[Rfam]
RNA sequence: GCUCUCGCCCCUCGACCCGACACAACAUUCUGCCGCAAUGUUGUGCGACCUGCAGUGUCGGUCGAGCCUCGCGAGC
Numbered sequence: 001g002c003u004c005u006c007g008c009c010c011c012u013c014g015a016c017c018c019g020a021c022a023c024a025a026c027a028u029u030c031u032g033c034c035g036c037a038a039u040g041u042u043g044u045g046c047g048a049c050c051u052g053c054a055g056u057g058u059c060g061g062u063c064g065a066g067c068c069u070c071g072c073g074a075g076c
Stems, first nucleotide, its partner, number of pairs: 001076004006071002013064005024042006047059003

The record is a 76-nucleotide RNA from Salinomyces thailandicus, which matches "bZIP non canonical Hac1/Xbp1 intron" in Rfam. bZIP intron RNA is a non-canonical intron that was first reported in HAC1 gene in yeast and XBP1 gene in Metazoa. Lineage of the source: Eukaryota > Pezizomycotina > leotiomyceta > Mycosphaerellales > Salinomyces.